[Rfam]
RNA: TPP riboswitch aptamer (THI element)
Organism: Candidatus Parepulonipiscium sp. PG-Nuni2H_MBin01
RNA sequence: AUAGCAAAGAACGGGAGCUUGUGUGCCAGGCUGAGAGGGAGUUAGAACUUCGACCGCACUUGAUUUGGGUAAUGCCAACGUAAGUAUUCUUUAUAAUUAUAAGA
Numbered sequence: 001a002u003a004g005c006a007a008a009g010a011a012c013g014g015g016a017g018c019u020u021g022u023g024u025g026c027c028a029g030g031c032u033g034a035g036a037g038g039g040a041g042u043u044a045g046a047a048c049u050u051c052g053a054c055c056g057c058a059c060u061u062g063a064u065u066u067g068g069g070u071a072a073u074g075c076c077a078a079c080g081u082a083a084g085u086a087u088u089c090u091u092u093a094u095a096a097u098u099a100u101a102a103g104a
Base pairs, nucleotide, nucleotide: 006092007091008090009089010088012056013055014054017031018030019029020028021027038051039050040049041048042047059084060083061082062081065078066077067076068075